[Rfam]
RNA: Small nucleolar RNA U3
Organism: Acyrthosiphon pisum
RNA sequence: AAGAUCAUACUUCACAGGAUCAUUUCUGUAGUAUGCAUCGUCCCCUCCAGGUGCAAAUCUGGAGUCGUCAUUGGCCACGAUGAUGAGACUUGUCCAUGUGCCAGAGCGUGAGAUCGCUGGUGGUCUGCUGUUCGCAGUGAUGAUCAUUCAGCAACGAUGAUCGCAACCAGCUCUGCUGGAAGGUAUAUGGACAGUCUGAGUGGU
Numbered sequence: 001a002a003g004a005u006c007a008u009a010c011u012u013c014a015c016a017g018g019a020u021c022a023u024u025u026c027u028g029u030a031g032u033a034u035g036c037a038u039c040g041u042c043c044c045c046u047c048c049a050g051g052u053g054c055a056a057a058u059c060u061g062g063a064g065u066c067g068u069c070a071u072u073g074g075c076c077a078c079g080a081u082g083a084u085g086a087g088a089c090u091u092g093u094c095c096a097u098g099u100g101c102c103a104g105a106g107c108g109u110g111a112g113a114u115c116g117c118u119g120g121u122g123g124u125c126u127g128c129u130g131u132u133c134g135c136a137g138u139g140a141u142g143a144u145c146a147u148u149c150a151g152c153a154a155c156g157a158u159g160a161u162c163g164c165a166a167c168c169a170g171c172u173c174u175g176c177u178g179g180a181a182g183g184u185a186u187a188u189g190g191a192c193a194g195u196c197u198g199a200g201u202g203g204u
Base pairs, nucleotide, nucleotide: 001041003039004038005037006035007034008033009032010031011030015028016027017026018025019024047062048061049060051059074204075203076202077201078200092192093191094190095189096188097187098186099185100184101183102182106164107163108162116152117151118150119149121146122145123144124143125137126136127135128134168178169177170176171175